[Rfam]
Iron response element II: a 31-nucleotide RNA from Takifugu flavidus. Taxonomically the source falls in Takifugu (Eukaryota, Bilateria, Gnathostomata, Euteleosteomorpha). By type it is a cis-regulatory element. From the family's description: IRE, TFRC, SLC40A1, SDHB, SLC11A2, CDC42BPA, ACO2, ALAS2_H.SAPIENS, CDC14A, EPAS1, ALAS2, qoxD, Hao1, NDUFS1, transferrin, Aconitate. A search with the family's covariance model found it, with a score of 32 bits. Gene Ontology term of the family: response to iron ion.

RNA sequence: AACCUAUCGGGGACAGUGUUUCCCACAGUUU
Numbered sequence: 001a002a003c004c005u006a007u008c009g010g011g012g013a014c015a016g017u018g019u020u021u022c023c024c025a026c027a028g029u030u031u
Stems, first nucleotide, its partner, number of pairs: 001031002004028002007025001009024005014018001